[Rfam]
RNA sequence: GUGCAAAUGAUGUAAACGUUGUUAUUCACUGAGUACAGUGAUGUUUCCAAAGGAACCACUGAUGCGC
Numbered sequence: 001g002u003g004c005a006a007a008u009g010a011u012g013u014a015a016a017c018g019u020u021g022u023u024a025u026u027c028a029c030u031g032a033g034u035a036c037a038g039u040g041a042u043g044u045u046u047c048c049a050a051a052g053g054a055a056c057c058a059c060u061g062a063u064g065c066g067c
Base pairs, nucleotide, nucleotide: 001067002066003065004064005063

Shown here is a 67-nucleotide RNA sequence from Amazona guildingii, a member of the family "Small nucleolar RNA SNORD42".
A reference for the family is Galardi et al. (2002), "Purified box C/D snoRNPs are able to reproduce site-specific 2'-O-methylation of target RNA in vitro", Mol Cell Biol.
The family has 7 seed sequences and 848 matches in Rfam 15.1.
About the family: snoRNA U42 is found in intron 3 of the ribosomal protein L23a (RPL23a) gene in humans and is also present in mice.